[Rfam]
RNA: mir-263 microRNA precursor family
Organism: Cryptotermes secundus
RNA sequence: CGACUACUGGGAAUGGCACUGGAAGAAUUCACGGGGUAACGACCAAGCCCGUGGUUCCUCGGUGCCAUCCGCAGUGGCAC
Numbered sequence: 001c002g003a004c005u006a007c008u009g010g011g012a013a014u015g016g017c018a019c020u021g022g023a024a025g026a027a028u029u030c031a032c033g034g035g036g037u038a039a040c041g042a043c044c045a046a047g048c049c050c051g052u053g054g055u056u057c058c059u060c061g062g063u064g065c066c067a068u069c070c071g072c073a074g075u076g077g078c079a080c
Base pairs, nucleotide, nucleotide: 004077005076006075007074008073009072013068014067015066016065017064018063020061021060022059025056026055029054030053031052032051033050034049